[Rfam]
RNA sequence: ACGAGGGUUGAAAUCCUCUGCAGUACCGUACGGUGCUGUUGUGUCGAUGACAUGUGGGAUCAGGUCCCACAUGGCAGUGACUGUACAACAUCGUACAGUACUGCAGAGGAUCCUAACCCUCC
Numbered sequence: 001a002c003g004a005g006g007g008u009u010g011a012a013a014u015c016c017u018c019u020g021c022a023g024u025a026c027c028g029u030a031c032g033g034u035g036c037u038g039u040u041g042u043g044u045c046g047a048u049g050a051c052a053u054g055u056g057g058g059a060u061c062a063g064g065u066c067c068c069a070c071a072u073g074g075c076a077g078u079g080a081c082u083g084u085a086c087a088a089c090a091u092c093g094u095a096c097a098g099u100a101c102u103g104c105a106g107a108g109g110a111u112c113c114u115a116a117c118c119c120u121c122c
Stems, first nucleotide, its partner, number of pairs: 003121007013111014028096008037087003051073010

About this RNA: The record is a 122-nucleotide RNA from Triticum aestivum, which matches "MIR5084 microRNA precursor family" in Rfam. Its family is annotated with miRNA-mediated post-transcriptional gene silencing and RISC complex in the Gene Ontology. The match comes from Rfam's covariance-model search (115 bits). Rfam 15.1 lists 152 matches to the family in 5 species.